Rfam assigns this 94-nucleotide RNA from Ooceraea biroi to the family "mir-275 microRNA precursor family".
Taxonomically the source falls in Ooceraea (Eukaryota, Ecdysozoa, Altocrustacea, Hymenoptera).
A reference for the family is Winter et al. (2007), "Anopheles gambiae miRNAs as actors of defence reaction against Plasmodium invasion", Nucleic Acids Res.
The match comes from Rfam's covariance-model search (67 bits).
RNA sequence: GUAUCGUUCGCGACACGCGUUACUCGAGUACCUCAGGCUGUGCCAAUUUAAAAGUCAGUCAGGUACCUGAAGUAGCGCGCGCUGCGGAGAAACG
Numbered sequence: 001g002u003a004u005c006g007u008u009c010g011c012g013a014c015a016c017g018c019g020u021u022a023c024u025c026g027a028g029u030a031c032c033u034c035a036g037g038c039u040g041u042g043c044c045a046a047u048u049u050a051a052a053a054g055u056c057a058g059u060c061a062g063g064u065a066c067c068u069g070a071a072g073u074a075g076c077g078c079g080c081g082c083u084g085c086g087g088a089g090a091a092a093c094g
Base pairs, nucleotide, nucleotide: 009086010085011084012083014081016079017078018077019076020075021074022073030064031063033062036060037059038058039057